[Rfam]
RNA sequence: UAGAACUGAAAGACCUAAACAGUCAAAUGAUAGGGUAACGCCUUGAAGGGCUGUCGAUAAUACUCCGAAUUGCAUUAGUUAUGUUAAGAUAUCUGAUGUGAUAAGCUCGGUGAAGUCGAGUGAGAUUAAUCCCUAAUUUAAUCAUAAGAUUGAAAGGAAAUGUACCUAGAGGUAGGUAAGGUUAAGAUAACUCGGUCGCCUAUAAA
Numbered sequence: 001u002a003g004a005a006c007u008g009a010a011a012g013a014c015c016u017a018a019a020c021a022g023u024c025a026a027a028u029g030a031u032a033g034g035g036u037a038a039c040g041c042c043u044u045g046a047a048g049g050g051c052u053g054u055c056g057a058u059a060a061u062a063c064u065c066c067g068a069a070u071u072g073c074a075u076u077a078g079u080u081a082u083g084u085u086a087a088g089a090u091a092u093c094u095g096a097u098g099u100g101a102u103a104a105g106c107u108c109g110g111u112g113a114a115g116u117c118g119a120g121u122g123a124g125a126u127u128a129a130u131c132c133c134u135a136a137u138u139u140a141a142u143c144a145u146a147a148g149a150u151u152g153a154a155a156g157g158a159a160a161u162g163u164a165c166c167u168a169g170a171g172g173u174a175g176g177u178a179a180g181g182u183u184a185a186g187a188u189a190a191c192u193c194g195g196u197c198g199c200c201u202a203u204a205a206a
Stems, first nucleotide, its partner, number of pairs: 018054001020053005032044004055198004065110004069102010080091003117194005126185006132157003138153006161179001163178006